c-di-GMP-II-GAG riboswitch aptamer: an 87-nucleotide sequence.
A reference for the family is Weinberg et al. (2017), "Bioinformatic analysis of riboswitch structures uncovers variant classes with altered ligand specificity", Proc Natl Acad Sci U S A.
Rfam's curators put it in the seed alignment.
The family is grouped with related families in Rfam's "c-di-GMP_II riboswitch clan".
The family's consensus secondary structure is taken from published work.
Its family is annotated with cyclic-di-GMP binding and regulation of gene expression in the Gene Ontology.
[Rfam]
RNA sequence: GAUAUAACUGGGUGCGAUGAACUGCGGGGGUACGAUUCCGGCCACCAAGUCCGCAGGGAGUAAAUGGUGGGACCGACCAGUGAGCGA
Number, nucleotide and partner (000 for none) at each position: 001g000002a000003u000004a000005u083006a000007a081008c080009u079010g078011g077012g000013u062014g061015c060016g000017a000018u000019g000020a000021a000022c056023u055024g054025c053026g052027g051028g050029g000030g000031u000032a000033c000034g000035a000036u000037u000038c000039c000040g074041g073042c070043c069044a068045c067046c066047a000048a000049g000050u028051c027052c026053g025054c024055a023056g022057g000058g000059a000060g015061u014062a013063a000064a000065u000066g046067g045068u044069g043070g042071g000072a000073c041074c040075g000076a000077c011078c010079a009080g008081u007082g000083a005084g000085c000086g000087a000